[Rfam]
RNA sequence: GGUGAUCCACACCAAUGUUUCGGACAGCGGUUCGAUUCCGCUCAGCUCCACUUUCUUAAAUUUACUCUGGGGCUGCAAUGGUUUCGACGGGACAUCAGGCGGGUGACUGAAGCCUGCUCGGUAAGAGCAAAACCGUAACAGCGAACAAAAUCGUUCGUUUCUCCCGUCAGACAGCCCCUGUUGCUGCCUGA
Numbered sequence: 001g002g003u004g005a006u007c008c009a010c011a012c013c014a015a016u017g018u019u020u021c022g023g024a025c026a027g028c029g030g031u032u033c034g035a036u037u038c039c040g041c042u043c044a045g046c047u048c049c050a051c052u053u054u055c056u057u058a059a060a061u062u063u064a065c066u067c068u069g070g071g072g073c074u075g076c077a078a079u080g081g082u083u084u085c086g087a088c089g090g091g092a093c094a095u096c097a098g099g100c101g102g103g104u105g106a107c108u109g110a111a112g113c114c115u116g117c118u119c120g121g122u123a124a125g126a127g128c129a130a131a132a133c134c135g136u137a138a139c140a141g142c143g144a145a146c147a148a149a150a151u152c153g154u155u156c157g158u159u160u161c162u163c164c165c166g167u168c169a170g171a172c173a174g175c176c177c178c179u180g181u182u183g184c185u186g187c188c189u190g191a
Stems, first nucleotide, its partner, number of pairs: 001108003005104001016094003020090003026042005043075007
Dot-bracket structure: (((.(..........(((.(((...(((((.......)))))(((((((...................)))))))............))).))).........).)))...................................................................................
The family of this 191-nucleotide sequence from an uncultured Synechococcaceae cyanobacterium is "permuted transfer-messenger RNA". Rfam's curators put it in the seed alignment. Bacterial tmRNA, also known as 10Sa RNA or SsrA, is named for its dual tRNA and mRNA-like properties. Its role is to liberate the mRNA from a stalled ribosome. To accomplish this part of the tmRNA is used as a reading frame that ends in a translation stop signal. The broken mRNA is replaced in the ribosome by the tmRNA and translation of the tmRNA leads to addition of a proteolysis tag to the incomplete protein enabling recognition by a protease. Recently a number of permuted tmRNA genes have been found encoded in two parts. tmRNAs have been identified in eubacteria and some chloroplasts but are absent from archaeal and eukaryote nuclear genomes. Pairs were carried over by alignment from the consensus structure, which is taken from published work. On this family, see Williams and Bartel, RNA 1996: "Phylogenetic analysis of tmRNA secondary structure". It is annotated as a non-coding RNA gene.